[Rfam]
RNA sequence: CUCUUAUUAAGAGUGGUGGAGAGUGAAGGCUCUGUGAAACCACGGCAACCCCAUAUGUGGAAGGUGCCAAUCUGAGCGAGCGAUCGAACAAUAAGAG
Numbered sequence: 001c002u003c004u005u006a007u008u009a010a011g012a013g014u015g016g017u018g019g020a021g022a023g024u025g026a027a028g029g030c031u032c033u034g035u036g037a038a039a040c041c042a043c044g045g046c047a048a049c050c051c052c053a054u055a056u057g058u059g060g061a062a063g064g065u066g067c068c069a070a071u072c073u074g075a076g077c078g079a080g081c082g083a084u085c086g087a088a089c090a091a092u093a094a095g096a097g
Stems, first nucleotide, its partner, number of pairs: 001097008013043005021032003029073001044068004049064002051060003077086003

Rfam assigns this 97-nucleotide RNA from Roseburia sp. CAG:380 to the family "SAM riboswitch aptamer (S box leader)".
The base pairs follow the family's consensus structure, which is taken from published work.